[Rfam]
RNA sequence: UCUUGGCUUAGUUAGGAGGCGCAAAUCAACAUGAUCAUCAAUACUUUUCUGUAUUGUUUUGACUUGUGGCUUUUUGUUUUCGUGGAGAAGCUUCUGUUUUGACUUUAAACUCAAGCUACUUCCUCAAAAAGUUUCAGACAUCA
Numbered sequence: 001u002c003u004u005g006g007c008u009u010a011g012u013u014a015g016g017a018g019g020c021g022c023a024a025a026u027c028a029a030c031a032u033g034a035u036c037a038u039c040a041a042u043a044c045u046u047u048u049c050u051g052u053a054u055u056g057u058u059u060u061g062a063c064u065u066g067u068g069g070c071u072u073u074u075u076g077u078u079u080u081c082g083u084g085g086a087g088a089a090g091c092u093u094c095u096g097u098u099u100u101g102a103c104u105u106u107a108a109a110c111u112c113a114a115g116c117u118a119c120u121u122c123c124u125c126a127a128a129a130a131g132u133u134u135c136a137g138a139c140a141u142c143a
Stems, first nucleotide, its partner, number of pairs: 004021002007018003035062003041057003045053001073137002075131001079128002082125001084122004089117004
RNA: Small nucleolar RNA U19